This 117-nucleotide sequence from Adhaeribacter pallidiroseus belongs to the Rfam family "Group II catalytic intron D1-D4-1". Rfam's curators write: Group II introns are found in rRNA, tRNA and mRNA of organelles in fungi, plants and protists, and also in mRNA in bacteria.
RNA sequence: CUUACCUGGGGAGGUCUCUCGGCCACGGGUUGGUAAGAGAGAAGUCAGCAGAAGCCAUAGUAGCCAUCAGGAAACGAGCCGUAAGCGCUGCGGAGGUCUCACAAGAUGACGAAGGGC
Numbered sequence: 001c002u003u004a005c006c007u008g009g010g011g012a013g014g015u016c017u018c019u020c021g022g023c024c025a026c027g028g029g030u031u032g033g034u035a036a037g038a039g040a041g042a043a044g045u046c047a048g049c050a051g052a053a054g055c056c057a058u059a060g061u062a063g064c065c066a067u068c069a070g071g072a073a074a075c076g077a078g079c080c081g082u083a084a085g086c087g088c089u090g091c092g093g094a095g096g097u098c099u100c101a102c103a104a105g106a107u108g109a110c111g112a113a114g115g116g117c
Stems, first nucleotide, its partner, number of pairs: 001032001004030005010024002045052002054117003063110001065108004